[Rfam]
RNA sequence: ACCACAUUCGGACCGUCGGUCUACUAAGCAAUAUCACCCGCUCGGUGGAAAUCCUUUGUCAU
Numbered sequence: 001a002c003c004a005c006a007u008u009c010g011g012a013c014c015g016u017c018g019g020u021c022u023a024c025u026a027a028g029c030a031a032u033a034u035c036a037c038c039c040g041c042u043c044g045g046u047g048g049a050a051a052u053c054c055u056u057u058g059u060c061a062u
Base pairs, nucleotide, nucleotide: 004059005058006057010054011053012052020049021048022047023046024045025044027042028041029040